Notes
Rfam assigns this 81-nucleotide RNA sequence from Funneliformis geosporum to the family "HDV ribozyme from F. prausnitzii". A reference for the family is Webb et al. (2009), "Widespread occurrence of self-cleaving ribozymes", Science. It scores 46 bits against the family's covariance model. Taxonomically the source falls in Funneliformis (Eukaryota, Fungi, Glomeromycota, Glomeraceae). Its family is annotated with catalytic activity in the Gene Ontology.
RNA sequence: CCUGAUCGAAGUUGUCACACCUCAACGUCGGUGAUCAGGUGGCAACAAGUCUUUUACUAAAGACUUGGCUAAGAUGGCAAC
Numbered sequence: 001c002c003u004g005a006u007c008g009a010a011g012u013u014g015u016c017a018c019a020c021c022u023c024a025a026c027g028u029c030g031g032u033g034a035u036c037a038g039g040u041g042g043c044a045a046c047a048a049g050u051c052u053u054u055u056a057c058u059a060a061a062g063a064c065u066u067g068g069c070u071a072a073g074a075u076g077g078c079a080a081c
Base pairs, nucleotide, nucleotide: 001039002038003037004036005035006034007033019032020031021030046067047066048065049064050063051062052061053060054059